Shown here is a 62-nucleotide sequence from Tupaia belangeri, a member of the family "mir-365 microRNA precursor family". Pairs were carried over by alignment from the consensus structure, which was predicted with RNAalifold. Its family is annotated with miRNA-mediated post-transcriptional gene silencing and RISC complex in the Gene Ontology.

RNA sequence: AGGGACUUUUGGGGGCAGAUGUGUUACCAUUCCACUACCAUAAUGCCCCUAAAAAUCCUUAU
Numbered sequence: 001a002g003g004g005a006c007u008u009u010u011g012g013g014g015g016c017a018g019a020u021g022u023g024u025u026a027c028c029a030u031u032c033c034a035c036u037a038c039c040a041u042a043a044u045g046c047c048c049c050u051a052a053a054a055a056u057c058c059u060u061a062u
Stems, first nucleotide, its partner, number of pairs: 001060005007054003011050007020042004